[Rfam]
RNA sequence: GGAGGAGGCAUCCAAAGGGAUCGCAUUGAUCCCAAAUCUCAGAUUUAUCACUUUUUCCUUCUCUUCCUUCUUCAAUGUUUGGGAUCAUGCUAUCCCUUUGGAUUCCUCCUU
Numbered sequence: 001g002g003a004g005g006a007g008g009c010a011u012c013c014a015a016a017g018g019g020a021u022c023g024c025a026u027u028g029a030u031c032c033c034a035a036a037u038c039u040c041a042g043a044u045u046u047a048u049c050a051c052u053u054u055u056u057c058c059u060u061c062u063c064u065u066c067c068u069u070c071u072u073c074a075a076u077g078u079u080u081g082g083g084a085u086c087a088u089g090c091u092a093u094c095c096c097u098u099u100g101g102a103u104u105c106c107u108c109c110u111u
Stems, first nucleotide, its partner, number of pairs: 002111005008105001010103012023090004028086005036079001

Rfam assigns this 111-nucleotide RNA sequence from Vigna angularis to the family "mir-393 microRNA precursor family". It scores 98 bits against the family's covariance model. Its family is annotated with miRNA-mediated post-transcriptional gene silencing and RISC complex in the Gene Ontology.